[Rfam]
This 54-nucleotide RNA sequence from Coregonus sp. 'balchen' belongs to the Rfam family "UnaL2 LINE 3' element".

RNA sequence: AGAUUACCAAUUUGUAAGUCGCUCUGGAUAAUAGCGUCUGCUAAAUGCCGUAAA
Numbered sequence: 001a002g003a004u005u006a007c008c009a010a011u012u013u014g015u016a017a018g019u020c021g022c023u024c025u026g027g028a029u030a031a032u033a034g035c036g037u038c039u040g041c042u043a044a045a046u047g048c049c050g051u052a053a054a
Stems, first nucleotide, its partner, number of pairs: 013043001014041003020036004025031001
For this family Rfam cites "Solution structure of an RNA stem-loop derived from the 3' conserved region of eel LINE UnaL2" (Baba et al., RNA, 2004). Rfam classes the family as a cis-regulatory element. The eel long interspersed element (LINE) UnaL2 and its partner short interspersed element (SINE) share a conserved 3' tail containing a stem-loop that is critical for their retrotransposition. Presumably, the first step of retrotransposition is the recognition of their 3' tails by UnaL2-encoded reverse transcriptase. The solution structure of a 17-nucleotide RNA derived from the 3' tail of UnaL2 was determined by NMR.